[Rfam]
RNA sequence: GAAUCAAUUAUGUACCGGAAACAUGCCACAGUUGGCUGAACCUGUCACCAAACAGAAGCUAAUUGCCAGUCCUUCAACUUAGAUUGAAGUACUAGUUUCCCAGAUCAAGAUAUUUUAAGAAAUUUGUUCUCUACGCAGAGACUUAUUUCUGGGCAGGAUAGGAAGUCCGUUGUCUGUGCGUCCCUAGGGAUUGAUAGACUUGGGAUGUCGAAGAUAGUCCACAUUU
Numbered sequence: 001g002a003a004u005c006a007a008u009u010a011u012g013u014a015c016c017g018g019a020a021a022c023a024u025g026c027c028a029c030a031g032u033u034g035g036c037u038g039a040a041c042c043u044g045u046c047a048c049c050a051a052a053c054a055g056a057a058g059c060u061a062a063u064u065g066c067c068a069g070u071c072c073u074u075c076a077a078c079u080u081a082g083a084u085u086g087a088a089g090u091a092c093u094a095g096u097u098u099c100c101c102a103g104a105u106c107a108a109g110a111u112a113u114u115u116u117a118a119g120a121a122a123u124u125u126g127u128u129c130u131c132u133a134c135g136c137a138g139a140g141a142c143u144u145a146u147u148u149c150u151g152g153g154c155a156g157g158a159u160a161g162g163a164a165g166u167c168c169g170u171u172g173u174c175u176g177u178g179c180g181u182c183c184c185u186a187g188g189g190a191u192u193g194a195u196a197g198a199c200u201u202g203g204g205a206u207g208u209c210g211a212a213g214a215u216a217g218u219c220c221a222c223a224u225u226u
Stems, first nucleotide, its partner, number of pairs: 017075003030064008042055004108218001148214002165206004172199004178195001180191004
Overview
The family of this 226-nucleotide RNA sequence from Huiozyma naganishii is "Small nucleolar RNA snR34". Pairs were carried over by alignment from the consensus structure, which was predicted with WAR. The family's RNA type in Rfam is H/ACA-box small nucleolar RNA. Taxonomically the source falls in Huiozyma naganishii (Eukaryota, Opisthokonta, Fungi, Ascomycota).